[Rfam]
RNA sequence: AGCCUUAUUGAAUAUCUAGACACACUCUGUUGUGAAUGUGCCCAUCUCAGUUUAAGGCAAUAUUAAGAUACAGGUUUUGCUUUCAUCAUGCAAAUUACAAAUUGCACUGGUGACAAUGAGACCUGCCACAUUU
Numbered sequence: 001a002g003c004c005u006u007a008u009u010g011a012a013u014a015u016c017u018a019g020a021c022a023c024a025c026u027c028u029g030u031u032g033u034g035a036a037u038g039u040g041c042c043c044a045u046c047u048c049a050g051u052u053u054a055a056g057g058c059a060a061u062a063u064u065a066a067g068a069u070a071c072a073g074g075u076u077u078u079g080c081u082u083u084c085a086u087c088a089u090g091c092a093a094a095u096u097a098c099a100a101a102u103u104g105c106a107c108u109g110g111u112g113a114c115a116a117u118g119a120g121a122c123c124u125g126c127c128a129c130a131u132u133u
Base pairs, nucleotide, nucleotide: 002058003057004056006054007053021040022039023038024037026035027034071125072124073123074122084112085111086110087109088108
The record is a 133-nucleotide RNA from Xenopus laevis, which matches "Small nucleolar RNA SNORA1" in Rfam. The base pairs follow the family's consensus structure, which was predicted with PFOLD. The match comes from Rfam's covariance-model search (72 bits). From the family's description: ACA1 is a member of the H/ACA class of snoRNA that guide the sites of modification of uridines to pseudouridines.